[Rfam]
RNA sequence: ACUCUUGCGCAGCGCGGCGCAGCCUCUAUAUUGGGGGUGCCGGGCUUGCCCGGCUAUGAUGCUAAACCCGUCACGGAAUAGACGUUACGGACCCGGGGGCGGUACCCGGCGUCUCCACCAAAUUUUCUGCCUGCCCUGUCUACAGGGCCUUGCAAAGGGCAGGAAGCAUGGGGACGAAACAGGAUCGACGUGCGUAGUAAAGGUUUCGGCUGUAUCCGGCAUGGUAUCCACCGUCAUCGGGCCAAUCACAACAAGUGCCAACGACAACGUUGAACUUGCCGCUGCCGCUUAAUUGCCGGUAAGCGCGGUCCGGGGGGCACCGGGCAACAGAAGCCCCCCACU
Numbered sequence: 001a002c003u004c005u006u007g008c009g010c011a012g013c014g015c016g017g018c019g020c021a022g023c024c025u026c027u028a029u030a031u032u033g034g035g036g037g038u039g040c041c042g043g044g045c046u047u048g049c050c051c052g053g054c055u056a057u058g059a060u061g062c063u064a065a066a067c068c069c070g071u072c073a074c075g076g077a078a079u080a081g082a083c084g085u086u087a088c089g090g091a092c093c094c095g096g097g098g099g100c101g102g103u104a105c106c107c108g109g110c111g112u113c114u115c116c117a118c119c120a121a122a123u124u125u126u127c128u129g130c131c132u133g134c135c136c137u138g139u140c141u142a143c144a145g146g147g148c149c150u151u152g153c154a155a156a157g158g159g160c161a162g163g164a165a166g167c168a169u170g171g172g173g174a175c176g177a178a179a180c181a182g183g184a185u186c187g188a189c190g191u192g193c194g195u196a197g198u199a200a201a202g203g204u205u206u207c208g209g210c211u212g213u214a215u216c217c218g219g220c221a222u223g224g225u226a227u228c229c230a231c232c233g234u235c236a237u238c239g240g241g242c243c244a245a246u247c248a249c250a251a252c253a254a255g256u257g258c259c260a261a262c263g264a265c266a267a268c269g270u271u272g273a274a275c276u277u278g279c280c281g282c283u284g285c286c287g288c289u290u291a292a293u294u295g296c297c298g299g300u301a302a303g304c305g306c307g308g309u310c311c312g313g314g315g316g317g318c319a320c321c322g323g324g325c326a327a328c329a330g331a332a333g334c335c336c337c338c339c340a341c342u
Stems, first nucleotide, its partner, number of pairs: 039054005058216005068209003073204002083194003087191003093109005110176007217233003222244003227240002306322004312339006